[Rfam]
RNA sequence: GCCUUGGACGAGGAAGAGGUGAUCUCCCACAUCCUCGCUGGACUCGAUGAGGAGUUCGACCUGGUGGUGUCGGCCAUGUGCUCUAGGGUCGAGGCUGUCAAGAUCCCGGAGCUGUUCUCACAACUUCUGAGCUUUGAGA
Numbered sequence: 001g002c003c004u005u006g007g008a009c010g011a012g013g014a015a016g017a018g019g020u021g022a023u024c025u026c027c028c029a030c031a032u033c034c035u036c037g038c039u040g041g042a043c044u045c046g047a048u049g050a051g052g053a054g055u056u057c058g059a060c061c062u063g064g065u066g067g068u069g070u071c072g073g074c075c076a077u078g079u080g081c082u083c084u085a086g087g088g089u090c091g092a093g094g095c096u097g098u099c100a101a102g103a104u105c106c107c108g109g110a111g112c113u114g115u116u117c118u119c120a121c122a123a124c125u126u127c128u129g130a131g132c133u134u135u136g137a138g139a
Base pairs, nucleotide, nucleotide: 004138005137007135008134093113094112095111096110098108